[Rfam]
RNA sequence: AACUCAAUAUAGCAAACCGCUUGAAAAGGCGGGACGCAAAGCCAUGGGUCUAAAGAUUACAUCUAUGAUUGCCAGGUUGCAGCC
Numbered sequence: 001a002a003c004u005c006a007a008u009a010u011a012g013c014a015a016a017c018c019g020c021u022u023g024a025a026a027a028g029g030c031g032g033g034a035c036g037c038a039a040a041g042c043c044a045u046g047g048g049u050c051u052a053a054a055g056a057u058u059a060c061a062u063c064u065a066u067g068a069u070u071g072c073c074a075g076g077u078u079g080c081a082g083c084c
Base pairs, nucleotide, nucleotide: 012037013036017032018031019030020029021028022027040078041077042076043075045074046073047072048069049068050067055063056062057061
Rfam assigns this 84-nucleotide sequence from Sporomusa acidovorans to the family "c-di-GMP-I riboswitch aptamer".
A search with the family's covariance model found it, with a score of 73 bits.
The family's consensus secondary structure is taken from published work.